[Rfam]
RNA sequence: UGGAAAUGAUGAAAUAGAGAUAAUUGGGUGUUGAAUGUUGUGUGAUUGGAAAAUUUUAAUGUGUGAGUUAAGUAAACUUUAUAGAUAAUUGUGUGUGUGUGUGUGUGUGUGUGUAUGUGUGUCCUCGCUCAUGGAGGCUAUUGAAAGGGAGCACUGAUUGGUGAUGCUGAUAUUGGAGUGCAUCUGAGGCUGUUGUAGAAAUAGACGGGCUGUUGAUUACAACAUUGCCGAUGAUUAUAACCCAAGAACAGCUCACCUAAGUAGCCUAGCACCCUACAAUCUCUAACAGGUUCAUUAAACAUGGUCCUGUGAUCUGAUCCAA
Numbered sequence: 001u002g003g004a005a006a007u008g009a010u011g012a013a014a015u016a017g018a019g020a021u022a023a024u025u026g027g028g029u030g031u032u033g034a035a036u037g038u039u040g041u042g043u044g045a046u047u048g049g050a051a052a053a054u055u056u057u058a059a060u061g062u063g064u065g066a067g068u069u070a071a072g073u074a075a076a077c078u079u080u081a082u083a084g085a086u087a088a089u090u091g092u093g094u095g096u097g098u099g100u101g102u103g104u105g106u107g108u109g110u111g112u113g114u115a116u117g118u119g120u121g122u123c124c125u126c127g128c129u130c131a132u133g134g135a136g137g138c139u140a141u142u143g144a145a146a147g148g149g150a151g152c153a154c155u156g157a158u159u160g161g162u163g164a165u166g167c168u169g170a171u172a173u174u175g176g177a178g179u180g181c182a183u184c185u186g187a188g189g190c191u192g193u194u195g196u197a198g199a200a201a202u203a204g205a206c207g208g209g210c211u212g213u214u215g216a217u218u219a220c221a222a223c224a225u226u227g228c229c230g231a232u233g234a235u236u237a238u239a240a241c242c243c244a245a246g247a248a249c250a251g252c253u254c255a256c257c258u259a260a261g262u263a264g265c266c267u268a269g270c271a272c273c274c275u276a277c278a279a280u281c282u283c284u285a286a287c288a289g290g291u292u293c294a295u296u297a298a299a300c301a302u303g304g305u306c307c308u309g310u311g312a313u314c315u316g317a318u319c320c321a322a
Stems, first nucleotide, its partner, number of pairs: 001321004191224008200214005

A member of the RNA family "Small Cajal body-specific RNA 7" from Leptonychotes weddellii, 322 nucleotides long. A search with the family's covariance model found it, with a score of 350 bits. Gene Ontology terms of the family: nucleolus and RNA processing. NCBI's taxonomy places the organism under Eukaryota, Eumetazoa, Teleostomi, Theria, Leptonychotes. The pairing is the family consensus, mapped onto this sequence.